Rfam assigns this 136-nucleotide sequence from Salvelinus namaycush to the family "Small nucleolar RNA SNORA5". The source organism's lineage runs through Eukaryota, Vertebrata, Actinopterygii, Actinopteri and Salvelinus.
RNA sequence: UGCUGCCUUGUCAAAUUCAGUGCUUCCUCUACAAUGGACCGUACUGGCCAUAAUGGCUGCCACAGUGAAACUGUAGUUAUCGGACUCUCAACCAUACGGAAUGAGUGUUAGGGAUAAACUUGAACUACAGAGAAUU
Numbered sequence: 001u002g003c004u005g006c007c008u009u010g011u012c013a014a015a016u017u018c019a020g021u022g023c024u025u026c027c028u029c030u031a032c033a034a035u036g037g038a039c040c041g042u043a044c045u046g047g048c049c050a051u052a053a054u055g056g057c058u059g060c061c062a063c064a065g066u067g068a069a070a071c072u073g074u075a076g077u078u079a080u081c082g083g084a085c086u087c088u089c090a091a092c093c094a095u096a097c098g099g100a101a102u103g104a105g106u107g108u109u110a111g112g113g114a115u116a117a118a119c120u121u122g123a124a125c126u127a128c129a130g131a132g133a134a135u136u
Base pairs, nucleotide, nucleotide: 002060003059005057018046019045020044021043022042023041027037028036073128074127075126076125077124078123085113086112087111088110
ACA5 is a member of the H/ACA class of snoRNA that guide the sites of modification of uridines to pseudouridines. Rfam classes the family as an H/ACA-box small nucleolar RNA.